[Rfam]
The record is an 85-nucleotide sequence from Homo sapiens, which matches "mir-515 microRNA precursor family" in Rfam. It is one of the family's seed sequences. The source organism's lineage runs through Eukaryota, Vertebrata, Dipnotetrapodomorpha, Hominoidea and Homo. A reference for the family is Bentwich et al. (2005), "Identification of hundreds of conserved and nonconserved human microRNAs", Nat Genet. The family's consensus secondary structure was predicted with RNAalifold. Gene Ontology terms of the family: RISC complex and miRNA-mediated post-transcriptional gene silencing.
RNA sequence: CUCAGGCUGUGACCCUCCAGAGGGAAGUACUUUCUGUUGUCUGAGAGAAAAGAAAGUGCUUCCCUUUGGACUGUUUCGGUUUGAG
Number, nucleotide and partner (000 for none) at each position: 001c085002u084003c083004a082005g000006g080007c079008u078009g077010u000011g075012a074013c073014c000015c000016u070017c069018c000019a067020g066021a065022g064023g063024g062025a061026a060027g059028u058029a057030c056031u055032u054033u053034c052035u000036g000037u051038u050039g000040u000041c000042u000043g000044a000045g000046a000047g000048a000049a000050a038051a037052g034053a033054a032055a031056g030057u029058g028059c027060u026061u025062c024063c023064c022065u021066u020067u019068g000069g017070a016071c000072u000073g013074u012075u011076u000077c009078g008079g007080u006081u000082u004083g003084a002085g001